[Rfam]
RNA sequence: CACUUCGCGGUCUCUAAUUCGCUUGGUGCAGGUCGGGAACCACUACAUCCGCAGUUUUCGCAACGGCGGAGAAUUGGUUCCCGCCUUGCAUCAACUGAAUCGGAGGCCGCGGUGAAG
Numbered sequence: 001c002a003c004u005u006c007g008c009g010g011u012c013u014c015u016a017a018u019u020c021g022c023u024u025g026g027u028g029c030a031g032g033u034c035g036g037g038a039a040c041c042a043c044u045a046c047a048u049c050c051g052c053a054g055u056u057u058u059c060g061c062a063a064c065g066g067c068g069g070a071g072a073a074u075u076g077g078u079u080c081c082c083g084c085c086u087u088g089c090a091u092c093a094a095c096u097g098a099a100u101c102g103g104a105g106g107c108c109g110c111g112g113u114g115a116a117g
Stems, first nucleotide, its partner, number of pairs: 013104002017100004023094010034083005040077002